[Rfam]
RNA sequence: AAUAUCCUGGAUUGUACGUAAAGUGAUUAGUUCUUUAUAAAUCCGAACAUUUCUAAUAAGGGAAUCUGACGCUCAAAUUCGGUGUUGAAUGCCUAGCUUUUUUCACCUAGGACUCCUAAAGAAUUUGAUAAGAUACCCACCUGCUAAUUUAGCGGGUUUACAUCCUAACACUUACGGCAAUUUGGGUCAUUA
Numbered sequence: 001a002a003u004a005u006c007c008u009g010g011a012u013u014g015u016a017c018g019u020a021a022a023g024u025g026a027u028u029a030g031u032u033c034u035u036u037a038u039a040a041a042u043c044c045g046a047a048c049a050u051u052u053c054u055a056a057u058a059a060g061g062g063a064a065u066c067u068g069a070c071g072c073u074c075a076a077a078u079u080c081g082g083u084g085u086u087g088a089a090u091g092c093c094u095a096g097c098u099u100u101u102u103u104c105a106c107c108u109a110g111g112a113c114u115c116c117u118a119a120a121g122a123a124u125u126u127g128a129u130a131a132g133a134u135a136c137c138c139a140c141c142u143g144c145u146a147a148u149u150u151a152g153c154g155g156g157u158u159u160a161c162a163u164c165c166u167a168a169c170a171c172u173u174a175c176g177g178c179a180a181u182u183u184g185g186g187u188c189a190u191u192a
Stems, first nucleotide, its partner, number of pairs: 002190002006186010017176003036162001038160007060138003064134004069129001074127007087115002092111005
Dot-bracket structure: .((..((((((((((.(((................(.(((((((...............(((.((((.(....(((((((......((...(((((..........)))))..)).....))))))).).)))).)))...............))))))).)...........)))))))))))))..))..
The record is a 192-nucleotide RNA sequence from Turicibacter sp. H121, which matches "6S / SsrS RNA" in Rfam. The literature on the family includes a 2017 paper in Molecular Cell by Chen et al., "6S RNA Mimics B-Form DNA to Regulate Escherichia coli RNA Polymerase". Rfam classes the family as a non-coding RNA gene.